[Rfam]
A member of the RNA family "RT-5 RNA" from Ruminococcaceae bacterium YRB3002, 109 nucleotides long.
RNA sequence: GGGCGCCUGUGGCGGACCCGGCAUGGACUGUUAACAGUGCUUCGCAGGCAGCCGGUCCAUGUACGGUCUGGUACAUUCCAUUCAUAGUGAAUGGAAUUUAAUGUUUUCU
Numbered sequence: 001g002g003g004c005g006c007c008u009g010u011g012g013c014g015g016a017c018c019c020g021g022c023a024u025g026g027a028c029u030g031u032u033a034a035c036a037g038u039g040c041u042u043c044g045c046a047g048g049c050a051g052c053c054g055g056u057c058c059a060u061g062u063a064c065g066g067u068c069u070g071g072u073a074c075a076u077u078c079c080a081u082u083c084a085u086a087g088u089g090a091a092u093g094g095a096a097u098u099u100a101a102u103g104u105u106u107u108c109u
Stems, first nucleotide, its partner, number of pairs: 005049007013070003017066002021062008037053001039052003077095006
Dot-bracket structure: ....[[[[[[[.(((.((..((((((((........(.(((.]]]]]]])))).))))))))..)).)))......((((((.......))))))..............
About this RNA:
By type it is a small RNA. A search with the family's covariance model found it, with a score of 86 bits.